[Rfam]
RNA: Alphaproteobacterial ar14
RNA sequence: GAAUUUCGCCGAAGCCUAUCCUCCUCCCAGGCAUCGGCGAAUACGGUCAACGCCCACCUCCUCCCGGGUGUUGUCCACUUACAAACGGCACCCGCUGAACCUCCUCCCUCAGCGGGUGCUGUUU
Numbered sequence: 001g002a003a004u005u006u007c008g009c010c011g012a013a014g015c016c017u018a019u020c021c022u023c024c025u026c027c028c029a030g031g032c033a034u035c036g037g038c039g040a041a042u043a044c045g046g047u048c049a050a051c052g053c054c055c056a057c058c059u060c061c062u063c064c065c066g067g068g069u070g071u072u073g074u075c076c077a078c079u080u081a082c083a084a085a086c087g088g089c090a091c092c093c094g095c096u097g098a099a100c101c102u103c104c105u106c107c108c109u110c111a112g113c114g115g116g117u118g119c120u121g122u123u124u
Base pairs, nucleotide, nucleotide: 006040007039008038010036011035012034014032015031016030045076046075048073049072050071051070052069053068054067088119089118090117091116092115093114094113095112096111097110098109